[Rfam]
Overview:
Rfam assigns this 178-nucleotide RNA from Photobacterium gaetbulicola to the family "Lysine riboswitch aptamer". The family's consensus secondary structure is taken from published work.
RNA sequence: CUGCAACGUAGAGGCGCAUUGCCUAACAGUAGUUUAGUGAAGGUCGACAGCCGGUGAAGCUAAGCGAAAGGAGUCAAUGCCGAAGUGGUUUUGGUCGUCAGCCAAGCUGCUGGGGUUGUUCUUAAUAGGAGCAGCACUGUCAUCUCGGGCCCUGCCCGGAUGGAGAGCUACAGCAAUA
Numbered sequence: 001c002u003g004c005a006a007c008g009u010a011g012a013g014g015c016g017c018a019u020u021g022c023c024u025a026a027c028a029g030u031a032g033u034u035u036a037g038u039g040a041a042g043g044u045c046g047a048c049a050g051c052c053g054g055u056g057a058a059g060c061u062a063a064g065c066g067a068a069a070g071g072a073g074u075c076a077a078u079g080c081c082g083a084a085g086u087g088g089u090u091u092u093g094g095u096c097g098u099c100a101g102c103c104a105a106g107c108u109g110c111u112g113g114g115g116u117u118g119u120u121c122u123u124a125a126u127a128g129g130a131g132c133a134g135c136a137c138u139g140u141c142a143u144c145u146c147g148g149g150c151c152c153u154g155c156c157c158g159g160a161u162g163g164a165g166a167g168c169u170a171c172a173g174c175a176a177u178a
Stems, first nucleotide, its partner, number of pairs: 008171004016080006023073002032065007084111005090106006112138002115135008140163006